[Rfam]
RNA sequence: GUUGCUUCUUACUGGUGAACCCCUUCAUAAUUGAAAUGAAGGUUGUUCUAGUUUCCGGGGCAUAGAUCAAAUGGCAGUAUUAAACAGCAUGGUGCAUAUCCAGUUGCAUAUUGCUACCUGUCUCCUGCAACAGAU
Numbered sequence: 001g002u003u004g005c006u007u008c009u010u011a012c013u014g015g016u017g018a019a020c021c022c023c024u025u026c027a028u029a030a031u032u033g034a035a036a037u038g039a040a041g042g043u044u045g046u047u048c049u050a051g052u053u054u055c056c057g058g059g060g061c062a063u064a065g066a067u068c069a070a071a072u073g074g075c076a077g078u079a080u081u082a083a084a085c086a087g088c089a090u091g092g093u094g095c096a097u098a099u100c101c102a103g104u105u106g107c108a109u110a111u112u113g114c115u116a117c118c119u120g121u122c123u124c125c126u127g128c129a130a131c132a133g134a135u
Stems, first nucleotide, its partner, number of pairs: 003062006017048004022042004074128004079123001086115003090108002
small nucleolar RNA snoR137: a 135-nucleotide RNA sequence from Ipomoea nil. A search with the family's covariance model found it, with a score of 87 bits. The source organism's lineage runs through Eukaryota, Viridiplantae, asterids, lamiids and Ipomoea.